The record is a 242-nucleotide RNA from Sphingomonas lenta, which matches "permuted transfer-messenger RNA" in Rfam. On this family, see Williams and Bartel, RNA 1996: "Phylogenetic analysis of tmRNA secondary structure". Rfam's curators write: Bacterial tmRNA, also known as 10Sa RNA or SsrA, is named for its dual tRNA and mRNA-like properties. The family's consensus secondary structure is taken from published work.

RNA sequence: GGCGAUAAACUGCGGCGUUCAAUAGACGCAGCGGACCCGGGGGCGGUACCCGGCGGCUCCACCACCUGAGCCGAGCCACUGGGCCAGCACGCGUGAAGCGUGCCGGCCGAGCGGCUCAGCUGGAGGGGCCGAACUAGGAUCGACGUGUGUUGAAAAGCGCUGUUUUCGCCCGGAAUGGGACCACCGCAACGGCCCAUAUCACAAGUGCCAACGACAACGAGGCGCUCGCGAUUGCCGCGUAA
Numbered sequence: 001g002g003c004g005a006u007a008a009a010c011u012g013c014g015g016c017g018u019u020c021a022a023u024a025g026a027c028g029c030a031g032c033g034g035a036c037c038c039g040g041g042g043g044c045g046g047u048a049c050c051c052g053g054c055g056g057c058u059c060c061a062c063c064a065c066c067u068g069a070g071c072c073g074a075g076c077c078a079c080u081g082g083g084c085c086a087g088c089a090c091g092c093g094u095g096a097a098g099c100g101u102g103c104c105g106g107c108c109g110a111g112c113g114g115c116u117c118a119g120c121u122g123g124a125g126g127g128g129c130c131g132a133a134c135u136a137g138g139a140u141c142g143a144c145g146u147g148u149g150u151u152g153a154a155a156a157g158c159g160c161u162g163u164u165u166u167c168g169c170c171c172g173g174a175a176u177g178g179g180a181c182c183a184c185c186g187c188a189a190c191g192g193c194c195c196a197u198a199u200c201a202c203a204a205g206u207g208c209c210a211a212c213g214a215c216a217a218c219g220a221g222g223c224g225c226u227c228g229c230g231a232u233u234g235c236c237g238c239g240u241a242a
Base pairs, nucleotide, nucleotide: 001170002169003168004167005166015160016159017158018157027149028148029147031146032145033144037053038052039051040050041049054131055130056129057128058127059126060125171186172185173184